[Rfam]
RNA sequence: CCCCUGUUCGCGUCGGGGUCAUGACGCGGAAUCCUCCCUGUUGGACUGGCCCGGGCAUCGCCCGGGUCUUUUU
Numbered sequence: 001c002c003c004c005u006g007u008u009c010g011c012g013u014c015g016g017g018g019u020c021a022u023g024a025c026g027c028g029g030a031a032u033c034c035u036c037c038c039u040g041u042u043g044g045a046c047u048g049g050c051c052c053g054g055g056c057a058u059c060g061c062c063c064g065g066g067u068c069u070u071u072u073u
Stems, first nucleotide, its partner, number of pairs: 008029007049067008
The family of this 73-nucleotide RNA sequence from Maritimibacter sp. HL-12 is "Singlet oxygen resistance RNA X". Rfam classes the family as a small RNA. Lineage of the source: Bacteria > Pseudomonadota > Alphaproteobacteria > Rhodobacterales > Maritimibacter. Gene Ontology term of the family: response to photooxidative stress. It scores 66 bits against the family's covariance model.